[Rfam]
MIR8565 microRNA precursor family: a 152-nucleotide RNA from Amborella trichopoda.
Rfam links the family to the GO terms miRNA-mediated post-transcriptional gene silencing and RISC complex.
It scores 142 bits against the family's covariance model.
The source organism's lineage runs through Eukaryota, Spermatophyta, Magnoliopsida, Amborellaceae and Amborella.
Nucleotides: 152
Base pairs, nucleotide, nucleotide: 002151003150004149005148006147007146008145009144010143011142012141013140017138018137019136020135021134022133023132024131025130026129027128028127030125031124032123034121036119037118038117039116040115041114042113043112044111045110048107049106050105051104052103053102054101055100056099057098058097059096060095061094062093063092064091065090066089067088068087069082070081071080072079073078
Number, partner (000 for none) and nucleotide at each position: 001000c002151c003150c004149a005148c006147a007146c008145c009144u010143a011142u012141g013140u014000g015000u016000c017138u018137a019136g020135g021134a022133c023132c024131u025130c026129a027128a028127a029000u030125g031124a032123u033000c034121a035000c036119c037118a038117u039116u040115a041114a042113a043112u044111u045110u046000a047000u048107u049106a050105c051104a052103g053102a054101u055100c056099u057098c058097u059096a060095g061094a062093a063092a064091a065090g066089u067088u068087a069082u070081c071080a072079c073078a074000u075000g076000g077000a078073u079072g080071u081070g082069g083000g084000a085000c086000u087068u088067a089066a090065c091064u092063u093062u094061u095060c096059u097058a098057g099056a100055g101054a102053u103052c104051u105050g106049u107048a108000c109000c110045a111044a112043a113042u114041u115040u116039a117038a118037u119036g120000a121034u122000g123032a124031u125030c126000c127028u128027u129026u130025g131024g132023g133022g134021u135020c136019c137018u138017a139000c140013a141012c142011a143010u144009g145008g146007g147006u148005g149004u150003g151002g152000g